[Rfam]
RNA sequence: UAGCACCGCUAGGGGAGCAUGGGCGCUGAGAAAGCCUCAAACCUCGGGCUCUAUCAGCUCGGCUGGGAGAGCUAUUGGAGACACAGGCGAGGGGCUGACCCUCGGAACCUGAACUGGGUAAUGCCAGCGUAGGGAAGCGGUAAGAAAAAAAC
Numbered sequence: 001u002a003g004c005a006c007c008g009c010u011a012g013g014g015g016a017g018c019a020u021g022g023g024c025g026c027u028g029a030g031a032a033a034g035c036c037u038c039a040a041a042c043c044u045c046g047g048g049c050u051c052u053a054u055c056a057g058c059u060c061g062g063c064u065g066g067g068a069g070a071g072c073u074a075u076u077g078g079a080g081a082c083a084c085a086g087g088c089g090a091g092g093g094g095c096u097g098a099c100c101c102u103c104g105g106a107a108c109c110u111g112a113a114c115u116g117g118g119u120a121a122u123g124c125c126a127g128c129g130u131a132g133g134g135a136a137g138c139g140g141u142a143a144g145a146a147a148a149a150a151a152c
Base pairs, nucleotide, nucleotide: 006140007139008138009137010136011102012101013100014099017026018025033096034095035094036093037092038091108133109132110131111130114127115126116125117124
The family of this 152-nucleotide sequence from Candidatus Hakubella thermalkaliphila is "TPP riboswitch aptamer (THI element)".